This 131-nucleotide sequence from Carlito syrichta belongs to the Rfam family "U11 spliceosomal RNA". A reference for the family is Schneider et al. (2004), "Identification of an evolutionarily divergent U11 small nuclear ribonucleoprotein particle in Drosophila", Proc Natl Acad Sci U S A. The family is grouped with related families in Rfam's "U1 clan". The organism belongs to Carlito, within Eukaryota. A search with the family's covariance model found it, with a score of 81 bits. By type it is a spliceosomal small nuclear RNA.
[Rfam]
RNA sequence: AACAUGGGCUUCUGUCAUAAUUGGCACACAUAGGGCAACUUGAUCGUUCAUGUGAAAUCGAUAUCAAGAGAUUCCGAAAGUAUAAUUUUUUGGUAUCUGGGCAGCUGGUGAUCAUUGGUCCUGGCACCUUG
Number, nucleotide and partner (000 for none) at each position: 001a000002a000003c000004a000005u000006g000007g000008g081009c080010u079011u078012c000013u026014g025015u024016c023017a022018u000019a000020a000021u000022u017023g016024g015025c014026a013027c052028a051029c000030a000031u000032a000033g049034g048035g047036c046037a000038a044039c000040u000041u000042g000043a000044u038045c000046g036047u035048u034049c033050a000051u028052g027053u076054g075055a000056a073057a072058u071059c070060g000061a000062u000063a000064u000065c000066a000067a000068g000069a000070g059071a058072u057073u056074c000075c054076g053077a000078a011079a010080g009081u008082a000083u000084a000085a000086u000087u000088u000089u000090u000091u000092g000093g000094u000095a000096u000097c000098u000099g129100g128101g127102c000103a000104g125105c124106u123107g122108g121109u000110g120111a119112u118113c117114a000115u000116u000117g113118g112119u111120c110121c108122u107123g106124g105125c104126a000127c101128c100129u099130u000131g000